[Rfam]
RNA sequence: AAUUGCCAUAAUGGCCAUAGAAGAAGCGCUCAUGUUGCAGCCCUAUCAGAUUGUAACAAAUCUGUGAAUUCUCCU
Numbered sequence: 001a002a003u004u005g006c007c008a009u010a011a012u013g014g015c016c017a018u019a020g021a022a023g024a025a026g027c028g029c030u031c032a033u034g035u036u037g038c039a040g041c042c043c044u045a046u047c048a049g050a051u052u053g054u055a056a057c058a059a060a061u062c063u064g065u066g067a068a069u070u071c072u073c074c075u
Stems, first nucleotide, its partner, number of pairs: 013042003019075002022072004026038003047064006